[Rfam]
RNA sequence: CAUUCCUGUGAUGAGUUAAAUAUUAAAGUAGUGGCCUGAAAUUCAUUGAUGAAUUACAAUCUCUGAGGAAUU
Numbered sequence: 001c002a003u004u005c006c007u008g009u010g011a012u013g014a015g016u017u018a019a020a021u022a023u024u025a026a027a028g029u030a031g032u033g034g035c036c037u038g039a040a041a042u043u044c045a046u047u048g049a050u051g052a053a054u055u056a057c058a059a060u061c062u063c064u065g066a067g068g069a070a071u072u
Stems, first nucleotide, its partner, number of pairs: 002071005
Rfam assigns this 72-nucleotide RNA from Daucus carota to the family "Small nucleolar RNA R21". Gene Ontology terms of the family: RNA processing and nucleolus. Pairs were carried over by alignment from the consensus structure, which was predicted with PFOLD. Lineage of the source: Eukaryota > eudicotyledons > Apiaceae > Scandiceae > Daucus carota.